[Rfam]
RNA sequence: UAGAAGGUGAAAAAUAUUACUCGUAUAUACUUGGAAAUAUGGUCUGAGUGUCUCUACCUGAUUCCCAUUCAAAGAACUGGACUACGAGUUAAAGUAUAAAAAUG
Numbered sequence: 001u002a003g004a005a006g007g008u009g010a011a012a013a014a015u016a017u018u019a020c021u022c023g024u025a026u027a028u029a030c031u032u033g034g035a036a037a038u039a040u041g042g043u044c045u046g047a048g049u050g051u052c053u054c055u056a057c058c059u060g061a062u063u064c065c066c067a068u069u070c071a072a073a074g075a076a077c078u079g080g081a082c083u084a085c086g087a088g089u090u091a092a093a094g095u096a097u098a099a100a101a102a103u104g
Stems, first nucleotide, its partner, number of pairs: 019089007029049007058080003062076003
Shown here is a 104-nucleotide RNA from Priestia megaterium, a member of the family "Purine riboswitch aptamer". The match comes from Rfam's covariance-model search (70 bits). The source organism's lineage runs through Bacteria, Bacilli, Bacillaceae, Priestia and Priestia megaterium. Its family is annotated with purine nucleobase biosynthetic process in the Gene Ontology. Riboswitches are metabolite binding domains within certain messenger RNAs that serve as precision sensors for their corresponding targets.